[Rfam]
RNA sequence: UGCUUUUUGCGCAGGCGGAGCUCUACCGGAAACUGAAGUCGUAAACACCUACAUCGCCACGCAUCGAGCGUCUACGGGGUCGAGCCGGUCUGCAAGGCGUUGCAAGUUGUCCCG
Numbered sequence: 001u002g003c004u005u006u007u008u009g010c011g012c013a014g015g016c017g018g019a020g021c022u023c024u025a026c027c028g029g030a031a032a033c034u035g036a037a038g039u040c041g042u043a044a045a046c047a048c049c050u051a052c053a054u055c056g057c058c059a060c061g062c063a064u065c066g067a068g069c070g071u072c073u074a075c076g077g078g079g080u081c082g083a084g085c086c087g088g089u090c091u092g093c094a095a096g097g098c099g100u101u102g103c104a105a106g107u108u109g110u111c112c113c114g
Base pairs, nucleotide, nucleotide: 016028017027018026075114076113077112078111079110086109087108089106091104092103093102094101095100